RNA sequence: UGACGGAGGGGCACUACCAGGAGUGGAGCCUACGGCUUAAUUUGACUCAACACGGGACAACUCACCCGGUCCGGACAUGUGCUCGAUGGACAGAUUGACAGCUCUUUCUAGAUUCCGUGGAUGGUGGUGCAUGGCCGCAGUUGGUUCGUGGGGUGACCUGUCUGGUUAAUUCCGAUAAACGAACGAGAUUCUCGCCUAUUAAAUAGGUGCCCUUCAUCCUAUCGCGAUGGAGGGGAACUUCUUAGAGGGACCGGCGGCUUCGAAGCCGUACGAGAGAGAGCGAUUGCAGGUCUGUGAUGCCCUUAGAUGUCCGGGGCCGCACGUGCGCUACAGUAGAGGGGACAACGUGCGAAGGUGCCUCGGCCGUCGGGCCUGGGUAACCCGAGCAGUCUCUCUCAGUGCUGGGGACAGGGGAUUGUAAUUAUUCCCCUCGAACGAGGAAUUCCCAGUAGGCGCGAGUCACUAACUCGUGCCGACUAAGUCACUGCCCUUUGUACACA
Numbered sequence: 001u002g003a004c005g006g007a008g009g010g011g012c013a014c015u016a017c018c019a020g021g022a023g024u025g026g027a028g029c030c031u032a033c034g035g036c037u038u039a040a041u042u043u044g045a046c047u048c049a050a051c052a053c054g055g056g057a058c059a060a061c062u063c064a065c066c067c068g069g070u071c072c073g074g075a076c077a078u079g080u081g082c083u084c085g086a087u088g089g090a091c092a093g094a095u096u097g098a099c100a101g102c103u104c105u106u107u108c109u110a111g112a113u114u115c116c117g118u119g120g121a122u123g124g125u126g127g128u129g130c131a132u133g134g135c136c137g138c139a140g141u142u143g144g145u146u147c148g149u150g151g152g153g154u155g156a157c158c159u160g161u162c163u164g165g166u167u168a169a170u171u172c173c174g175a176u177a178a179a180c181g182a183a184c185g186a187g188a189u190u191c192u193c194g195c196c197u198a199u200u201a202a203a204u205a206g207g208u209g210c211c212c213u214u215c216a217u218c219c220u221a222u223c224g225c226g227a228u229g230g231a232g233g234g235g236a237a238c239u240u241c242u243u244a245g246a247g248g249g250a251c252c253g254g255c256g257g258c259u260u261c262g263a264a265g266c267c268g269u270a271c272g273a274g275a276g277a278g279a280g281c282g283a284u285u286g287c288a289g290g291u292c293u294g295u296g297a298u299g300c301c302c303u304u305a306g307a308u309g310u311c312c313g314g315g316g317c318c319g320c321a322c323g324u325g326c327g328c329u330a331c332a333g334u335a336g337a338g339g340g341g342a343c344a345a346c347g348u349g350c351g352a353a354g355g356u357g358c359c360u361c362g363g364c365c366g367u368c369g370g371g372c373c374u375g376g377g378u379a380a381c382c383c384g385a386g387c388a389g390u391c392u393c394u395c396u397c398a399g400u401g402c403u404g405g406g407g408a409c410a411g412g413g414g415a416u417u418g419u420a421a422u423u424a425u426u427c428c429c430c431u432c433g434a435a436c437g438a439g440g441a442a443u444u445c446c447c448a449g450u451a452g453g454c455g456c457g458a459g460u461c462a463c464u465a466a467c468u469c470g471u472g473c474c475g476a477c478u479a480a481g482u483c484a485c486u487g488c489c490c491u492u493u494g495u496a497c498a499c500a
Stems, first nucleotide, its partner, number of pairs: 001498002003495003007492007016482002020446005025331001027329003031325004035320002041056004065315005071309001076119004089108002092105003123303002126301004132297001133295001134291003137287004144184006150159003163174003190279004195248003199245004205239002208236001251272001254269005336397006349382001358377002362373004405436001410431006452474008

Background:
The record is a 500-nucleotide part of an RNA from Trichonephila clavata, which matches "Eukaryotic small subunit ribosomal RNA" in Rfam. Its family is annotated with structural constituent of ribosome and ribosome in the Gene Ontology.